Shown here is a 65-nucleotide RNA sequence from Myotis lucifugus, a member of the family "mir-9242 microRNA precursor family".
It scores 64 bits against the family's covariance model.
The base pairs follow the family's consensus structure, which was predicted with RNAalifold.

RNA sequence: GGCCCCCCUCUGUGGGGCAAUCGAUGGUGGGGGCUCCACAAUCGAUCGCCUCAAAGAGGGAGGCC
Numbered sequence: 001g002g003c004c005c006c007c008c009u010c011u012g013u014g015g016g017g018c019a020a021u022c023g024a025u026g027g028u029g030g031g032g033g034c035u036c037c038a039c040a041a042u043c044g045a046u047c048g049c050c051u052c053a054a055a056g057a058g059g060g061a062g063g064c065c
Base pairs, nucleotide, nucleotide: 001065002064003063004062006060007059008058009057010056011055013053014052015051016050017049018048020046021045022044023043024042025041027039028038029037030036031035